U5 spliceosomal RNA: a 115-nucleotide RNA sequence from Myripristis murdjan. The organism belongs to Myripristis, within Eukaryota. The literature on the family includes a 1990 paper in Nucleic Acids Res by Thomas et al., "The spliceosomal snRNAs of Caenorhabditis elegans". U5 RNA is a component of both types of known spliceosome. The precise function of this molecule is unknown, though it is known that the 5' loop is required for splice site selection and p220 binding, and that both the 3' stem-loop and the Sm site are important for Sm protein binding and cap methylation. The family's RNA type in Rfam is spliceosomal small nuclear RNA.
[Rfam]
RNA sequence: UCACUCUUGAUUCUCUUCAGAUCGUAUAAAUCUUACGCCUUUUACUAAAGAUUUCCGUGGAGAGGAGCGUUAUGAGUAUCAACUAAUUUUUUAAUGCCCUGCGUUUAAUAGGGCU
Numbered sequence: 001u002c003a004c005u006c007u008u009g010a011u012u013c014u015c016u017u018c019a020g021a022u023c024g025u026a027u028a029a030a031u032c033u034u035a036c037g038c039c040u041u042u043u044a045c046u047a048a049a050g051a052u053u054u055c056c057g058u059g060g061a062g063a064g065g066a067g068c069g070u071u072a073u074g075a076g077u078a079u080c081a082a083c084u085a086a087u088u089u090u091u092u093a094a095u096g097c098c099c100u101g102c103g104u105u106u107a108a109u110a111g112g113g114c115u
Base pairs, nucleotide, nucleotide: 003077004076005075006074009068011066012065013064014063015062016061017060018059019058028054029053030052031051032050033049034048094115096114097113098112099111100110101109